[Rfam]
RNA: Small nucleolar RNA snoR74
Organism: Hibiscus syriacus
RNA sequence: AAAUAAGCAGGGUCUUGUUGCCUUUUGUGAACUUGGUUCUCGUACACUUCAGGAAAAUUACUUGUGCAUUGUUCUUGGGUGAAUCUCUGGUUGUUAACGAUGCCUGAAGGUUCAGUAAACGAUGCUACAUUU
Number, nucleotide and partner (000 for none) at each position: 001a000002a000003a000004u000005a049006a048007g047008c000009a000010g000011g038012g037013u000014c035015u000016u000017g032018u000019u000020g000021c000022c000023u000024u000025u000026u000027g000028u000029g000030a000031a000032c017033u000034u000035g014036g000037u012038u011039c000040u000041c000042g000043u000044a000045c000046a000047c007048u006049u005050c000051a000052g000053g000054a000055a000056a000057a000058u000059u000060a000061c000062u000063u000064g000065u000066g125067c124068a123069u122070u121071g120072u119073u118074c000075u000076u000077g000078g000079g000080u114081g113082a112083a111084u110085c109086u108087c000088u000089g000090g000091u000092u000093g000094u000095u000096a000097a000098c000099g000100a000101u000102g000103c000104c000105u000106g000107a000108a086109g085110g084111u083112u082113c081114a080115g000116u000117a000118a073119a072120c071121g070122a069123u068124g067125c066126u000127a000128c000129a000130u000131u000132u000